[Rfam]
RNA: Lysine riboswitch aptamer
Organism: Oceanobacillus bengalensis
RNA sequence: AGUAAGGGUAGAGGUGCAGAAACCAUUAGUACUUAUGUGGAGGAGAAUGAGCUCCCGUGAAACAUAAGGAAAGGGGGAUUUGCCGAAGUGGAAGGAUACUCAUUGUCCUGAAGCUGGGUCUGGUAUUGAAUAAAACCAGAACUGUCAUAUAGGAAACUAUAUGGAGGGCUAUCAAGCUA
Numbered sequence: 001a002g003u004a005a006g007g008g009u010a011g012a013g014g015u016g017c018a019g020a021a022a023c024c025a026u027u028a029g030u031a032c033u034u035a036u037g038u039g040g041a042g043g044a045g046a047a048u049g050a051g052c053u054c055c056c057g058u059g060a061a062a063c064a065u066a067a068g069g070a071a072a073g074g075g076g077g078a079u080u081u082g083c084c085g086a087a088g089u090g091g092a093a094g095g096a097u098a099c100u101c102a103u104u105g106u107c108c109u110g111a112a113g114c115u116g117g118g119u120c121u122g123g124u125a126u127u128g129a130a131u132a133a134a135a136c137c138a139g140a141a142c143u144g145u146c147a148u149a150u151a152g153g154a155a156a157c158u159a160u161a162u163g164g165a166g167g168g169c170u171a172u173c174a175a176g177c178u179a
Base pairs, nucleotide, nucleotide: 007173008172009171010170011169016083017082018081019080020079023076024075032068033067034066035065036064037063038062087115088114089113093109094108095107096106097105098104116143117142119140120139121138122137123136124135126133145164146163147162148161149160150159151158